[Rfam]
RNA sequence: UGAUGCCAGGCAUUGACUUCUCACUAGCUGUGAAAGUCCUAGCUAAAGAGAAGUCAAUGCAUGACAUCUU
Numbered sequence: 001u002g003a004u005g006c007c008a009g010g011c012a013u014u015g016a017c018u019u020c021u022c023a024c025u026a027g028c029u030g031u032g033a034a035a036g037u038c039c040u041a042g043c044u045a046a047a048g049a050g051a052a053g054u055c056a057a058u059g060c061a062u063g064a065c066a067u068c069u070u
Stems, first nucleotide, its partner, number of pairs: 002068004007063002010060013025045006032038002
Dot-bracket structure: .((((.((.(((((((((((((..((((((.((...)).))))))..))))))))))))).)).))))..
RNA: mir-1256 microRNA precursor family